The family of this 98-nucleotide RNA sequence from Sodalis ligni is "t44 RNA". It scores 80 bits against the family's covariance model. Rfam describes the family as follows. This family consists of a number of bacterial RNA genes of between 135 and 170 bases in length. The base pairs follow the family's consensus structure, which was predicted with LocARNA. The source organism's lineage runs through Bacteria, Pseudomonadati, Pseudomonadota, Bruguierivoracaceae and Sodalis. It is annotated as a small RNA. On this family, see Tjaden et al., Nucleic Acids Res 2002: "Transcriptome analysis of Escherichia coli using high-density oligonucleotide probe arrays".
RNA sequence: UAUACCUAAGUGUUAUUACACACACGUAUCGGCACAUGUGCCGGGGUGCCUUGGCCUGGAUGGCGGGGUCGGCCGCAUGGGAUACGUGGAGGCAUAAC
Numbered sequence: 001u002a003u004a005c006c007u008a009a010g011u012g013u014u015a016u017u018a019c020a021c022a023c024a025c026g027u028a029u030c031g032g033c034a035c036a037u038g039u040g041c042c043g044g045g046g047u048g049c050c051u052u053g054g055c056c057u058g059g060a061u062g063g064c065g066g067g068g069u070c071g072g073c074c075g076c077a078u079g080g081g082a083u084a085c086g087u088g089g090a091g092g093c094a095u096a097a098c
Stems, first nucleotide, its partner, number of pairs: 023088008035079005040073004048069005